[Rfam]
RNA sequence: CCUGUAGAGCGUUACAUCAAACGCAAGUAGCUUACCUUUCGGGGUAGUCAAAGCGGACGUGAUGAUACAGGAA
Numbered sequence: 001c002c003u004g005u006a007g008a009g010c011g012u013u014a015c016a017u018c019a020a021a022c023g024c025a026a027g028u029a030g031c032u033u034a035c036c037u038u039u040c041g042g043g044g045u046a047g048u049c050a051a052a053g054c055g056g057a058c059g060u061g062a063u064g065a066u067a068c069a070g071g072a073a
Stems, first nucleotide, its partner, number of pairs: 001071005009060005022055003030048003035043002